[Rfam]
Nucleotides: 068
Stems, first nucleotide, its partner, number of pairs: 001068002004065002
Number, partner (000 for none) and nucleotide at each position: 001068a002067u003000g004065u005064g006000a007000a008000u009000g010000a011000u012000g013000a014000c015000u016000u017000a018000g019000a020000u021000u022000g023000u024000u025000a026000g027000a028000u029000a030000c031000c032000c033000u034000u035000c036000a037000c038000c039000c040000u041000u042000u043000a044000u045000g046000a047000c048000u049000g050000a051000a052000a053000c054000c055000a056000c057000a058000g059000u060000c061000u062000g063000a064005c065004a066000a067002a068001u
Source information: The record is a 68-nucleotide sequence from Castor canadensis, which matches "Small nucleolar RNA SNORD101" in Rfam. The family is grouped with related families in Rfam's "SNORD101 clan". Pairs were carried over by alignment from the consensus structure, which was predicted with PFOLD. By type it is a C/D-box small nucleolar RNA. Its family is annotated with RNA processing and nucleolus in the Gene Ontology. On this family, see Vitali et al., Nucleic Acids Res 2003: "Identification of 13 novel human modification guide RNAs". A search with the family's covariance model found it, with a score of 53 bits.